Description: Rfam assigns this 121-nucleotide RNA from Salix brachista to the family "mir-172 microRNA precursor family". Gene Ontology terms of the family: miRNA-mediated post-transcriptional gene silencing and RISC complex. It scores 80 bits against the family's covariance model. On this family, see Mette et al., Plant Physiol 2002: "Short RNAs can identify new candidate transposable element families in Arabidopsis". Rfam describes the family as follows. mir-172 has been experimentally verified in Arabidopsis thaliana. This family is thought to target mRNAs coding for APETALA2-like transcription factors. The mature sequence is excised from the 3' arm of the hairpin.
RNA sequence: UUGUUUGCAGGUGCAGCACCAUUAAGAUUCACAUUCAAAUAGAUGUACGGAGGCUAGCUAGCUAGCUAGCAAUGUAUUUCUUCGGAAGUGAGAAUCUUGAUGAUGCUGCAUCAGCCAUAUG
Numbered sequence: 001u002u003g004u005u006u007g008c009a010g011g012u013g014c015a016g017c018a019c020c021a022u023u024a025a026g027a028u029u030c031a032c033a034u035u036c037a038a039a040u041a042g043a044u045g046u047a048c049g050g051a052g053g054c055u056a057g058c059u060a061g062c063u064a065g066c067u068a069g070c071a072a073u074g075u076a077u078u079u080c081u082u083c084g085g086a087a088g089u090g091a092g093a094a095u096c097u098u099g100a101u102g103a104u105g106c107u108g109c110a111u112c113a114g115c116c117a118u119a120u121g
Base pairs, nucleotide, nucleotide: 010112011111012110013109014108015107016106017105018104020102021101022100023099024098025097026096027095028094029093030092032090033089034088035087